c-di-AMP riboswitch aptamer (ydaO/yuaA leader): a 166-nucleotide RNA from Streptomyces sp. RP5T. A search with the family's covariance model found it, with a score of 58 bits. Taxonomically the source falls in Streptomyces (Bacteria, Bacillati, Actinomycetes, Kitasatosporales).
RNA sequence: GCACGGCCUCCGCCGAGUCCGCGGCGCCGCGCGCCCGGAGCCGGGGACCCACCGAACCUGGGGUGAAUCGGCCGACUCCCGCGCGGGGAGAGCCGUAGGGCAAACCUUCCGAAGCAGCACGCCCGAACCCGACAGCUAACCCGGUAGGCGGAGCACGGGAAGGAGU
Numbered sequence: 001g002c003a004c005g006g007c008c009u010c011c012g013c014c015g016a017g018u019c020c021g022c023g024g025c026g027c028c029g030c031g032c033g034c035c036c037g038g039a040g041c042c043g044g045g046g047a048c049c050c051a052c053c054g055a056a057c058c059u060g061g062g063g064u065g066a067a068u069c070g071g072c073c074g075a076c077u078c079c080c081g082c083g084c085g086g087g088g089a090g091a092g093c094c095g096u097a098g099g100g101c102a103a104a105c106c107u108u109c110c111g112a113a114g115c116a117g118c119a120c121g122c123c124c125g126a127a128c129c130c131g132a133c134a135g136c137u138a139a140c141c142c143g144g145u146a147g148g149c150g151g152a153g154c155a156c157g158g159g160a161a162g163g164a165g166u
Stems, first nucleotide, its partner, number of pairs: 011150004018039003040145006050060002061130003069095004098124004